[Rfam]
RNA sequence: UUAAGUUGUACAACACCCUGUAAACCGAGACCUCUAGGGUGUCUAAACACGUCUCUAAUACCUCAGGCGGAGGGUGUCUGAGGAAUAUUCAUACUA
Dot-bracket structure: .............(((((((......[[[[[...))))))).........]]]]]......(((((((.......)))))))..............
Shown here is a 96-nucleotide sequence, a member of the family "PhotoRC-II RNA". It is annotated as a cis-regulatory element. The sequence is in the family's curated seed alignment.